[Rfam]
RNA sequence: GUUGCAAAUGAUGACAAACUAGACAGGGACAUCAGAUCUCCUAAUUAGAGAAAAUGCUGAUUUGUCUGUGGGAAUCUCUCUGAUGCACA
Dot-bracket structure: ..((((.............................................................................))))..
Numbered sequence: 001g002u003u004g005c006a007a008a009u010g011a012u013g014a015c016a017a018a019c020u021a022g023a024c025a026g027g028g029a030c031a032u033c034a035g036a037u038c039u040c041c042u043a044a045u046u047a048g049a050g051a052a053a054a055u056g057c058u059g060a061u062u063u064g065u066c067u068g069u070g071g072g073a074a075u076c077u078c079u080c081u082g083a084u085g086c087a088c089a
Stems, first nucleotide, its partner, number of pairs: 003087004